[Rfam]
RNA sequence: GUGACGUUGGCCAAUCAUAAUGUCACAAUGCUUGUGAAAGAGAGAGAAACACAAGCAUUGUGGCAUUGUGAUUGGUCAAUGUCAC
Number, nucleotide and partner (000 for none) at each position: 001g085002u084003g083004a082005c081006g080007u079008u078009g077010g076011c075012c074013a073014a072015u071016c070017a069018u068019a067020a066021u065022g064023u063024c062025a061026c060027a059028a058029u057030g056031c055032u054033u053034g052035u051036g050037a000038a000039a000040g000041a000042g000043a000044g000045a000046g000047a000048a000049a000050c036051a035052c034053a033054a032055g031056c030057a029058u028059u027060g026061u025062g024063g023064c022065a021066u020067u019068g018069u017070g016071a015072u014073u013074g012075g011076u010077c009078a008079a007080u006081g005082u004083c003084a002085c001